Record summary:
A member of the RNA family "tRNA" from Acholeplasma laidlawii, 73 nucleotides long. Gene Ontology term of the family: triplet codon-amino acid adaptor activity. It is one of the family's seed sequences.
RNA sequence: GCGGUUGUGGCGAAGUGGUUAACGCAUCGGCUUGUGGCGCCGACACUCGGGGGUUCAAUUCCCCUCGGCCGCC
Numbered sequence: 001g002c003g004g005u006u007g008u009g010g011c012g013a014a015g016u017g018g019u020u021a022a023c024g025c026a027u028c029g030g031c032u033u034g035u036g037g038c039g040c041c042g043a044c045a046c047u048c049g050g051g052g053g054u055u056c057a058a059u060u061c062c063c064c065u066c067g068g069c070c071g072c073c
Stems, first nucleotide, its partner, number of pairs: 001072007010025003027043005049065005